[Rfam]
RNA sequence: GAGUCACAGGACUAAGUGGUUGGGUCAAGACCUCAUAGCCCAUACUUUGAGGUCAGGACUCAGGAAAGUCCCUGGGCCGAACUCCGUAGAAAUUGCGGCCUCGGAAACGAGAGUUACUUCAAGCGUGGCAAUCAGACGCCUGUUAUAAUUGGAUUUCUGGGCGUGGGCUGAGACGCGUGUGCGGAGCCUUUGGUGCCGCCUGAAGUAUAUUGGCCGAUUCUUCACAGUCAUCCACUUGGUUCACUUCUGUGGACUAACUGAACGGGGAUUAUGAUUCUGUGACU
Numbered sequence: 001g002a003g004u005c006a007c008a009g010g011a012c013u014a015a016g017u018g019g020u021u022g023g024g025u026c027a028a029g030a031c032c033u034c035a036u037a038g039c040c041c042a043u044a045c046u047u048u049g050a051g052g053u054c055a056g057g058a059c060u061c062a063g064g065a066a067a068g069u070c071c072c073u074g075g076g077c078c079g080a081a082c083u084c085c086g087u088a089g090a091a092a093u094u095g096c097g098g099c100c101u102c103g104g105a106a107a108c109g110a111g112a113g114u115u116a117c118u119u120c121a122a123g124c125g126u127g128g129c130a131a132u133c134a135g136a137c138g139c140c141u142g143u144u145a146u147a148a149u150u151g152g153a154u155u156u157c158u159g160g161g162c163g164u165g166g167g168c169u170g171a172g173a174c175g176c177g178u179g180u181g182c183g184g185a186g187c188c189u190u191u192g193g194u195g196c197c198g199c200c201u202g203a204a205g206u207a208u209a210u211u212g213g214c215c216g217a218u219u220c221u222u223c224a225c226a227g228u229c230a231u232c233c234a235c236u237u238g239g240u241u242c243a244c245u246u247c248u249g250u251g252g253a254c255u256a257a258c259u260g261a262a263c264g265g266g267g268a269u270u271a272u273g274a275u276u277c278u279g280u281g282a283c284u
Stems, first nucleotide, its partner, number of pairs: 002284010014237006021062006029054007066270002070267004085097004100111004148208002155204003159200002161196003165189004175182002239254006

This 284-nucleotide sequence from Coptis chinensis belongs to the Rfam family "RNase MRP". The literature on the family includes a 1993 paper in FASEB J by Schmitt et al., "Secondary structure of RNase MRP RNA as predicted by phylogenetic comparison". The source organism's lineage runs through Eukaryota, Streptophyta, Magnoliopsida, Ranunculales and Coptis. The match comes from Rfam's covariance-model search (77 bits). The base pairs follow the family's consensus structure, which is taken from published work.